This 186-nucleotide sequence from Acinetobacter pittii belongs to the Rfam family "Manganese Mn2+ riboswitch aptamer (yybP-ykoY)". Taxonomically the source falls in Acinetobacter pittii (Bacteria, Pseudomonadota, Moraxellales, Moraxellaceae). The base pairs follow the family's consensus structure.

RNA sequence: GCAUACUUCAUUGGGGAGUAGCCGCUAUUCAUUUCUAAAUGAAUAGGUGAUGAUCAACAUAAUUGUUCAACAGAACAUGGUCAUCAUAGCUUAAACGUCUCAUCGUUUCCGAGUUGGCAAGACCUUUGAUUUACCACUCUGCAGAUAUUUGGCUAGCAGGAGGGGUAGGUCAUGGGCAUUUAUGCU
Dot-bracket structure: .........................(((..............))).((((((((((.......(((((....)))))))))))))))...................................................................................................
Numbered sequence: 001g002c003a004u005a006c007u008u009c010a011u012u013g014g015g016g017a018g019u020a021g022c023c024g025c026u027a028u029u030c031a032u033u034u035c036u037a038a039a040u041g042a043a044u045a046g047g048u049g050a051u052g053a054u055c056a057a058c059a060u061a062a063u064u065g066u067u068c069a070a071c072a073g074a075a076c077a078u079g080g081u082c083a084u085c086a087u088a089g090c091u092u093a094a095a096c097g098u099c100u101c102a103u104c105g106u107u108u109c110c111g112a113g114u115u116g117g118c119a120a121g122a123c124c125u126u127u128g129a130u131u132u133a134c135c136a137c138u139c140u141g142c143a144g145a146u147a148u149u150u151g152g153c154u155a156g157c158a159g160g161a162g163g164g165g166u167a168g169g170u171c172a173u174g175g176g177c178a179u180u181u182a183u184g185c186u
Stems, first nucleotide, its partner, number of pairs: 026045003047087010064077005